[Rfam]
RNA sequence: CUACCAAAAGUUUGUUUUGGGGGGAAGGUUUUUUGAUAACCUUUACCAGCUUGGGCUCUUUGGGAGAGUAAAGAAAAGACCACACUCCACAGUGGGCUAUACCACUAAAUAUAGUCCACUACUAUUUUGUGGCCUACAUU
Numbered sequence: 001c002u003a004c005c006a007a008a009a010g011u012u013u014g015u016u017u018u019g020g021g022g023g024g025a026a027g028g029u030u031u032u033u034u035g036a037u038a039a040c041c042u043u044u045a046c047c048a049g050c051u052u053g054g055g056c057u058c059u060u061u062g063g064g065a066g067a068g069u070a071a072a073g074a075a076a077a078g079a080c081c082a083c084a085c086u087c088c089a090c091a092g093u094g095g096g097c098u099a100u101a102c103c104a105c106u107a108a109a110u111a112u113a114g115u116c117c118a119c120u121a122c123u124a125u126u127u128u129g130u131g132g133c134c135u136a137c138a139u140u
Stems, first nucleotide, its partner, number of pairs: 004063005014056004019051002023047002026044001027041004077135002080132005091120011
RNA: Small nucleolar RNA SNORA4